[Rfam]
RNA sequence: GUAUUCCUCAUUUGUAAGUCGCUUUGGAUAAAAGUGUCUGCUAAAUGAACAAAU
Numbered sequence: 001g002u003a004u005u006c007c008u009c010a011u012u013u014g015u016a017a018g019u020c021g022c023u024u025u026g027g028a029u030a031a032a033a034g035u036g037u038c039u040g041c042u043a044a045a046u047g048a049a050c051a052a053a054u
Stems, first nucleotide, its partner, number of pairs: 013043001014041003020036006
The record is a 54-nucleotide RNA sequence from Sinocyclocheilus rhinocerous, which matches "UnaL2 LINE 3' element" in Rfam. Lineage of the source: Eukaryota > Bilateria > Chordata > Ostariophysi > Sinocyclocheilus. The base pairs follow the family's consensus structure, which is taken from published work. The eel long interspersed element (LINE) UnaL2 and its partner short interspersed element (SINE) share a conserved 3' tail containing a stem-loop that is critical for their retrotransposition. Presumably, the first step of retrotransposition is the recognition of their 3' tails by UnaL2-encoded reverse transcriptase. The solution structure of a 17-nucleotide RNA derived from the 3' tail of UnaL2 was determined by NMR. It is annotated as a cis-regulatory element.